A member of the RNA family "Heliobacter pylori small RNA HPnc0580" from Helicobacter pylori, 99 nucleotides long.
For this family Rfam cites "The primary transcriptome of the major human pathogen Helicobacter pylori" (Sharma et al., Nature, 2010).
The source organism's lineage runs through Bacteria, Epsilonproteobacteria, Helicobacteraceae, Helicobacter and Helicobacter pylori.
RNA sequence: AUGCAUUUGCAUCUAGCGUAGGAAGUGCGCAAAGUUACGCUAGAUAUGAUGCGUGAAAGCUGUAAGGAAUGCGUUGGAGCUCAGAUUCUGUAAAAUCCC
Dot-bracket structure: ...............(((((.....)))))....((.(((((.......)).))).)).................((((......))))..........